The record is a 101-nucleotide RNA from Celerinatantimonas diazotrophica, which matches "Vibrio RNA AS9" in Rfam.
The family's RNA type in Rfam is antisense RNA.
Rfam's curators write: Identified by direct cloning an parallel sequencing experiments with 5S/tRNA depletion.

RNA sequence: CUGGCAACGCUGCUCAGUGAGUGAUAAACAGAUAAGGCCCCGUCCAUAACGUGCCAUAAAAUUAAUAGCAGCGGGCGUGAUCUUUUCCGCUGCUAUAAUAA
Number, nucleotide and partner (000 for none) at each position: 001c000002u000003g055004g054005c053006a025007a000008c023009g022010c021011u020012g000013c000014u000015c000016a000017g000018u000019g000020a011021g010022u009023g008024a000025u006026a000027a000028a000029c000030a000031g000032a047033u046034a000035a000036g044037g043038c042039c000040c000041c000042g038043u037044c036045c000046a033047u032048a000049a000050c000051g000052u000053g005054c004055c003056a000057u000058a000059a000060a000061a000062u000063u101064a000065a099066u098067a000068g093069c092070a000071g090072c089073g088074g087075g085076c000077g083078u000079g000080a000081u000082c000083u077084u000085u075086u000087c074088c073089g072090c071091u000092g069093c068094u000095a000096u000097a000098a066099u065100a000101a063